Small nucleolar RNA Z102/R77: a 91-nucleotide RNA from Musa troglodytarum. The match comes from Rfam's covariance-model search (69 bits). The family's consensus secondary structure was predicted with PFOLD. The source organism's lineage runs through Eukaryota, Streptophyta, Liliopsida, Petrosaviidae and Musa.
RNA sequence: GAAGGGAAUGAUGAUCGAUGAUUUUUUUUUUCCCUAUUGGUUUGAUGGCCGAUGUGAUGGCUGCCAUUGUAUUAGCUCUAUCUGAUCUCUC
Numbered sequence: 001g002a003a004g005g006g007a008a009u010g011a012u013g014a015u016c017g018a019u020g021a022u023u024u025u026u027u028u029u030u031u032c033c034c035u036a037u038u039g040g041u042u043u044g045a046u047g048g049c050c051g052a053u054g055u056g057a058u059g060g061c062u063g064c065c066a067u068u069g070u071a072u073u074a075g076c077u078c079u080a081u082c083u084g085a086u087c088u089c090u091c
Stems, first nucleotide, its partner, number of pairs: 002090001004088002044064001047062004